The family of this 85-nucleotide RNA sequence from Cupriavidus metallidurans is "Burkholderia RNA 7 (anti-hemB)". Rfam 15.1 lists 479 matches to the family in 458 species. About the family: This RNA motif was identified by computational search in b-proteobacteria Burkholderia. Co-purified with Hfq, expression confirmed by Northern blot. A reference for the family is Ramos et al. (2013), "Experimental identification of small non-coding regulatory RNAs in the opportunistic human pathogen Burkholderia cenocepacia J2315", Genomics. It is one of the family's seed sequences. The source organism's lineage runs through Bacteria, Pseudomonadota, Burkholderiales, Burkholderiaceae and Cupriavidus metallidurans.
RNA sequence: UCCCCCGCUACUCCUCCCUGAGCGGGUACCCGCCCUGAACCGGCGGGAAAGUUCGUCCCCGUUGUUCGCAACGGGGCUUUUUUUU
Numbered sequence: 001u002c003c004c005c006c007g008c009u010a011c012u013c014c015u016c017c018c019u020g021a022g023c024g025g026g027u028a029c030c031c032g033c034c035c036u037g038a039a040c041c042g043g044c045g046g047g048a049a050a051g052u053u054c055g056u057c058c059c060c061g062u063u064g065u066u067c068g069c070a071a072c073g074g075g076g077c078u079u080u081u082u083u084u085u
Stems, first nucleotide, its partner, number of pairs: 004026006029047006057076008